[Rfam]
The family of this 81-nucleotide RNA sequence from Lachnospiraceae bacterium 7_1_58FAA is "pemK RNA". The organism belongs to Lachnospiraceae, within Bacteria.
RNA sequence: GUAAUGAUACUCCUGUCCAGCCACAGCCACAAGCAGUGGGGGCAGCUCGGAGAGAUCCUCGGAGGGGUGAGAUUCCCGUGA
Numbered sequence: 001g002u003a004a005u006g007a008u009a010c011u012c013c014u015g016u017c018c019a020g021c022c023a024c025a026g027c028c029a030c031a032a033g034c035a036g037u038g039g040g041g042g043c044a045g046c047u048c049g050g051a052g053a054g055a056u057c058c059u060c061g062g063a064g065g066g067g068u069g070a071g072a073u074u075c076c077c078g079u080g081a
Base pairs, nucleotide, nucleotide: 012078013045014044015043016042017041018040046064047063048062050060051059052058065077066076067075